[Rfam]
RNA: small nucleolar RNA snoR114
Organism: Tetracentron sinense
RNA sequence: GAGCUGUGAUGAACUCUGUGCUAAUGUGUUAGAAAGGGUCUAAUCGCAAUCGUCUUCUGGACGAAAAAAGCGCAUCUGAGCUC
Number, nucleotide and partner (000 for none) at each position: 001g083002a082003g081004c080005u000006g000007u000008g000009a000010u000011g000012a000013a000014c000015u000016c000017u000018g000019u000020g000021c000022u000023a000024a000025u000026g000027u000028g000029u000030u000031a000032g000033a000034a000035a000036g000037g000038g000039u000040c000041u000042a000043a000044u000045c000046g000047c000048a000049a000050u000051c000052g000053u000054c000055u000056u000057c000058u000059g000060g000061a000062c000063g000064a000065a000066a000067a000068a000069a000070g000071c000072g000073c000074a000075u000076c000077u000078g000079a000080g004081c003082u002083c001